[Rfam]
RNA sequence: GAAGUGCGAACCAAGCAGUCACACGCUGGUGAUGUGAGACUUGGAGCUGACCUUGGUGACGGGGUCAUGCA
Numbered sequence: 001g002a003a004g005u006g007c008g009a010a011c012c013a014a015g016c017a018g019u020c021a022c023a024c025g026c027u028g029g030u031g032a033u034g035u036g037a038g039a040c041u042u043g044g045a046g047c048u049g050a051c052c053u054u055g056g057u058g059a060c061g062g063g064g065u066c067a068u069g070c071a
Base pairs, nucleotide, nucleotide: 011044012043013042014041015040018033019032020031021030022029048067049066050065051064052063053062054061055060
Dot-bracket structure: ..........(((((..(((((......)))))......)))))...((((((((....))))))))....